[Rfam]
RNA sequence: UACUAUCAAGAUCUCCGAGCCUGCCCCCCCUACGGAGGUUGCCUUUAAGGGGACAGGCCUCAGGGUUGCAUUGGAAACGGUGUGGCCUCCCAGUCUUGGAAAGGAGAUUCUUACCAUGCGCU
Numbered sequence: 001u002a003c004u005a006u007c008a009a010g011a012u013c014u015c016c017g018a019g020c021c022u023g024c025c026c027c028c029c030c031u032a033c034g035g036a037g038g039u040u041g042c043c044u045u046u047a048a049g050g051g052g053a054c055a056g057g058c059c060u061c062a063g064g065g066u067u068g069c070a071u072u073g074g075a076a077a078c079g080g081u082g083u084g085g086c087c088u089c090c091c092a093g094u095c096u097u098g099g100a101a102a103g104g105a106g107a108u109u110c111u112u113a114c115c116a117u118g119c120g121c122u
Base pairs, nucleotide, nucleotide: 006113011108012107013106014105015104016103019058020057021056022055023054025052028051029050030049034046035045036044037043063088064087065086066085067084068083069082070081071080072079073078089099090098
RNA: Molybdenum/Tungsten riboswitch aptamer (Moco RNA motif)
Organism: Desulfuromonas acetoxidans